[Rfam]
The family of this 95-nucleotide sequence from Jatropha curcas is "MIR535 microRNA precursor family". Taxonomically the source falls in Jatropha (Eukaryota, fabids, Malpighiales, Jatropheae). Gene Ontology terms of the family: RISC complex and miRNA-mediated post-transcriptional gene silencing.

RNA sequence: CAUAUUGUAUGACGACGAUAGAGAGCACGCUAGUAGACAGCCAAGCCCACAGCAUGAAUGCUAACCAGUGUGCUCUCUCUCGUCGUCAAGCAAUC
Number, nucleotide and partner (000 for none) at each position: 001c000002a000003u000004a000005u000006u000007g000008u000009a000010u088011g087012a086013c085014g084015a000016c082017g081018a000019u000020a078021g077022a000023g075024a000025g073026c072027a071028c070029g069030c068031u067032a000033g065034u064035a000036g000037a000038c000039a000040g000041c000042c000043a000044a000045g000046c000047c000048c000049a000050c000051a000052g000053c000054a000055u000056g000057a000058a000059u000060g000061c000062u000063a000064a034065c033066c000067a031068g030069u029070g028071u027072g026073c025074u000075c023076u000077c021078u020079c000080u000081c017082g016083u000084c014085g013086u012087c011088a010089a000090g000091c000092a000093a000094u000095c000